Source information
Plant small nucleolar RNA U3: a 216-nucleotide sequence from Kalanchoe fedtschenkoi. The family is grouped with related families in Rfam's "U3 clan". It is annotated as a C/D-box small nucleolar RNA. Rfam describes the family as follows. Small nucleolar RNAs (snoRNAs) are involved in the processing and modification of rRNA in the nucleolus. There are two main classes of snoRNAs: the box C/D class, and the box H/ACA class. It scores 127 bits against the family's covariance model.

RNA sequence: ACGAACUUACUUGAACAUGAUCUGUUCUACAGGAUCCUCUGUAUCCUUGAUCUCAAAGGAGACAAGAAUCCAAGUCUGGUGGAUGAAUCAUGGCCACAUGAUCAGAGCGUGAUUAAUUAAUGGCUCCAGCAUCCCCUCUGGAGCUUCUAGGCUGUAGAGGAUCGUUCUUUGUUCUCUGUGGAGGCCCUGAAUGGUCAUGUGGUUGUCUGACAGAAU
Numbered sequence: 001a002c003g004a005a006c007u008u009a010c011u012u013g014a015a016c017a018u019g020a021u022c023u024g025u026u027c028u029a030c031a032g033g034a035u036c037c038u039c040u041g042u043a044u045c046c047u048u049g050a051u052c053u054c055a056a057a058g059g060a061g062a063c064a065a066g067a068a069u070c071c072a073a074g075u076c077u078g079g080u081g082g083a084u085g086a087a088u089c090a091u092g093g094c095c096a097c098a099u100g101a102u103c104a105g106a107g108c109g110u111g112a113u114u115a116a117u118u119a120a121u122g123g124c125u126c127c128a129g130c131a132u133c134c135c136c137u138c139u140g141g142a143g144c145u146u147c148u149a150g151g152c153u154g155u156a157g158a159g160g161a162u163c164g165u166u167c168u169u170u171g172u173u174c175u176c177u178g179u180g181g182a183g184g185c186c187c188u189g190a191a192u193g194g195u196c197a198u199g200u201g202g203u204u205g206u207c208u209g210a211c212a213g214a215a216u
Base pairs, nucleotide, nucleotide: 001038003035006032007031013027014026015025016024017023040064041063042062044060045059046058047057048056075214076213077212078211093203094202095201096200097199098198099197100196101195102194103193104192106166107165108164109163120155121154122153123152124151125150128148129147131145133143135141136140168189171186173184174183175182176181

About this RNA
The literature on the family includes a 2010 paper in RNA Biol by Marz and Stadler, "Comparative analysis of eukaryotic U3 snoRNA".